Shown here is a 60-nucleotide sequence, a member of the family "Glutamine-II riboswitch aptamer". The sequence is in the family's curated seed alignment.
RNA sequence: AAACGUUCACUUCGUCUCGACGAAGCGCAGACAAGCCAGGCCAUGGAACGGGGACCUGGA
Number, nucleotide and partner (000 for none) at each position: 001a000002a000003a000004c050005g049006u048007u047008c046009a000010c025011u024012u023013c022014g021015u000016c000017u000018c000019g000020a000021c014022g013023a012024a011025g010026c000027g000028c000029a000030g000031a000032c000033a000034a000035g000036c059037c058038a057039g056040g055041c053042c052043a000044u000045g000046g008047a007048a006049c005050g004051g000052g042053g041054a000055c040056c039057u038058g037059g036060a000